[Rfam]
Overview: A member of the RNA family "tRNA" from Rhodopila globiformis, 71 nucleotides long.
RNA sequence: GGUCCGGUGGCAGAGUGGUGAUGCAACGGACUGCAAAUCCGCGUAUGCCGGUUCGAUUCCGGCCCGGACCU
Numbered sequence: 001g002g003u004c005c006g007g008u009g010g011c012a013g014a015g016u017g018g019u020g021a022u023g024c025a026a027c028g029g030a031c032u033g034c035a036a037a038u039c040c041g042c043g044u045a046u047g048c049c050g051g052u053u054c055g056a057u058u059c060c061g062g063c064c065c066g067g068a069c070c071u
Stems, first nucleotide, its partner, number of pairs: 001070007010024003027041004047063005

NCBI's taxonomy places the organism under Bacteria, Pseudomonadati, Alphaproteobacteria, Acetobacterales, Rhodopila. It is annotated as a transfer RNA. A search with the family's covariance model found it, with a score of 63 bits. The family has 954 seed sequences and 5,335,975 matches in Rfam 15.1.